[Rfam]
RNA: ZMP/ZTP riboswitch aptamer (pfl RNA motif)
Organism: Intrasporangium calvum
RNA sequence: CUGACACCACACGACUGGCGCAGGUGGGGAACCACCAGGGAGUGAACCGUCGGAGCAUCGCCCGCCUGGGUGCUCCUG
Numbered sequence: 001c002u003g004a005c006a007c008c009a010c011a012c013g014a015c016u017g018g019c020g021c022a023g024g025u026g027g028g029g030a031a032c033c034a035c036c037a038g039g040g041a042g043u044g045a046a047c048c049g050u051c052g053g054a055g056c057a058u059c060g061c062c063c064g065c066c067u068g069g070g071u072g073c074u075c076c077u078g
Base pairs, nucleotide, nucleotide: 003051004050005049010044011043012042015039016038017066018065019064020063024035025034026033027032055073056072057071058070059069